[Rfam]
RNA sequence: GCCCAAAGUCGCACGAGCCUGUGGGCGUCCCCCGAUCCUCAAAUGCGAGGGCCAUCGGGCAGGUCCUGGAGAACGCCUCCAGUCGAUUUCGCAGCAUCGCGGAAUCGAGGACGCCUUAAAGCAACGACGGUGCGGGCUUUU
Numbered sequence: 001g002c003c004c005a006a007a008g009u010c011g012c013a014c015g016a017g018c019c020u021g022u023g024g025g026c027g028u029c030c031c032c033c034g035a036u037c038c039u040c041a042a043a044u045g046c047g048a049g050g051g052c053c054a055u056c057g058g059g060c061a062g063g064u065c066c067u068g069g070a071g072a073a074c075g076c077c078u079c080c081a082g083u084c085g086a087u088u089u090c091g092c093a094g095c096a097u098c099g100c101g102g103a104a105u106c107g108a109g110g111a112c113g114c115c116u117u118a119a120a121g122c123a124a125c126g127a128c129g130g131u132g133c134g135g136g137c138u139u140u141u
Stems, first nucleotide, its partner, number of pairs: 001137004008128004017122002023116008031059005037050004066082005083108004089102004
A member of the RNA family "Alphaproteobacterial sRNA ar45" from Aureimonas endophytica, 141 nucleotides long. On this family, see del Val et al., RNA Biol 2012: "A survey of sRNA families in alpha-proteobacteria". The source organism's lineage runs through Bacteria, Pseudomonadati, Hyphomicrobiales, Aurantimonadaceae and Aureimonas. It scores 111 bits against the family's covariance model. The base pairs follow the family's consensus structure. Rfam classes the family as a small RNA.